[Rfam]
RNA sequence: GUGCGCUCCGGGGCUCGGUGCGAUUCCGAACCGGCGGUGAAAGUCCGCGAACCGGCGCCGUUCCAGCGGGAACGGCCCGGCCGAUCCGGUGGAACUCCGGAACCGACGGUGACAGUCCGGAUGGGAGGCAGCGCAC
Numbered sequence: 001g002u003g004c005g006c007u008c009c010g011g012g013g014c015u016c017g018g019u020g021c022g023a024u025u026c027c028g029a030a031c032c033g034g035c036g037g038u039g040a041a042a043g044u045c046c047g048c049g050a051a052c053c054g055g056c057g058c059c060g061u062u063c064c065a066g067c068g069g070g071a072a073c074g075g076c077c078c079g080g081c082c083g084a085u086c087c088g089g090u091g092g093a094a095c096u097c098c099g100g101a102a103c104c105g106a107c108g109g110u111g112a113c114a115g116u117c118c119g120g121a122u123g124g125g126a127g128g129c130a131g132c133g134c135a136c
Stems, first nucleotide, its partner, number of pairs: 003134005008128002016028003030116002032105002034048004043103002052080004085101005107119003
Rfam assigns this 136-nucleotide RNA sequence from Saccharopolyspora erythraea to the family "FMN riboswitch aptamer (RFN element)". Taxonomically the source falls in Saccharopolyspora erythraea (Bacteria, Bacillati, Pseudonocardiales, Saccharopolyspora). A search with the family's covariance model found it, with a score of 89 bits.